[Rfam]
RNA sequence: GAGCCAGCUCAGCCCAGCGGUUCCAUCGACCAACGUAUUGCUUAGAUCUCCCAAUCGUUUUCAGUGGUUUGAGACCUGUGAGCGCUGCCUGGCUU
Numbered sequence: 001g002a003g004c005c006a007g008c009u010c011a012g013c014c015c016a017g018c019g020g021u022u023c024c025a026u027c028g029a030c031c032a033a034c035g036u037a038u039u040g041c042u043u044a045g046a047u048c049u050c051c052c053a054a055u056c057g058u059u060u061u062c063a064g065u066g067g068u069u070u071g072a073g074a075c076c077u078g079u080g081a082g083c084g085c086u087g088c089c090u091g092g093c094u095u
Stems, first nucleotide, its partner, number of pairs: 002094006012083002015080001017079004026072004
Rfam assigns this 95-nucleotide RNA from Podarcis muralis to the family "Vault RNA". Lineage of the source: Eukaryota > Metazoa > Eumetazoa > Deuterostomia > Podarcis. By type it is a non-coding RNA gene.